Rfam assigns this 90-nucleotide RNA from Streptomyces indicus to the family "sodF sRNA". A search with the family's covariance model found it, with a score of 97 bits. Rfam classes the family as a small RNA. Its family is annotated with mRNA binding, negative regulation of translation and regulation of mRNA stability in the Gene Ontology. On this family, see Kim et al., Nucleic Acids Res 2014: "Inverse regulation of Fe- and Ni-containing SOD genes by a Fur family regulator Nur through small RNA processed from 3'UTR of the sodF mRNA". Taxonomically the source falls in Streptomyces (Bacteria, Bacillati, Actinomycetes, Streptomycetaceae).

RNA sequence: ACGCCCUGCUCGUGAUCGUCUUCUCAACCUUCACGGGGCAGGCGGAGAGAAGGAGAGCCCCCGCGGUGACGUGAACCGCGGGGGCUCUCC
Dot-bracket structure: .((.(((((((((((..((.......))..)))).))))))))).......((((((((((((((((.......))))))))))))))))